Small nucleolar RNA Z266: a 96-nucleotide RNA from Turnera subulata. Taxonomically the source falls in Turnera (Eukaryota, Streptophytina, Embryophyta, Passifloraceae). Rfam classes the family as a C/D-box small nucleolar RNA. Rfam 15.1 lists 719 matches to the family in 213 species. For this family Rfam cites "The high diversity of snoRNAs in plants: identification and comparative study of 120 snoRNA genes from Oryza sativa" (Chen et al., Nucleic Acids Res, 2003).

[Rfam]
RNA sequence: AAUGGGCAAGAGUGAUGAUUCAAUUAGAUGUGUGAACGGAGUUAAUCCAUUUUGAACUUAACUAUUGAGGCAUAUUAUUUGUCUGACUUGCCCAUU
Numbered sequence: 001a002a003u004g005g006g007c008a009a010g011a012g013u014g015a016u017g018a019u020u021c022a023a024u025u026a027g028a029u030g031u032g033u034g035a036a037c038g039g040a041g042u043u044a045a046u047c048c049a050u051u052u053u054g055a056a057c058u059u060a061a062c063u064a065u066u067g068a069g070g071c072a073u074a075u076u077a078u079u080u081g082u083c084u085g086a087c088u089u090g091c092c093c094a095u096u
Stems, first nucleotide, its partner, number of pairs: 001096010
Dot-bracket structure: ((((((((((............................................................................))))))))))